[Rfam]
RNA: Manganese Mn2+ riboswitch aptamer (yybP-ykoY)
Organism: Glacieibacterium frigidum
RNA sequence: UUGGGGAGUAGCUACCCGCGCGAGCGGGGCCUGCGUCAACAUGCUUGGGCCGGUGACGGUCCGUGGCGCAGGCAGCGGCCGAUGGCCGCCC
Numbered sequence: 001u002u003g004g005g006g007a008g009u010a011g012c013u014a015c016c017c018g019c020g021c022g023a024g025c026g027g028g029g030c031c032u033g034c035g036u037c038a039a040c041a042u043g044c045u046u047g048g049g050c051c052g053g054u055g056a057c058g059g060u061c062c063g064u065g066g067c068g069c070a071g072g073c074a075g076c077g078g079c080c081g082a083u084g085g086c087c088g089c090c091c
Base pairs, nucleotide, nucleotide: 016027017026018025029073030072031071032070033069034068035067036066037065038064046063047062048061049060050059051058052057075089076088077087078086079085080084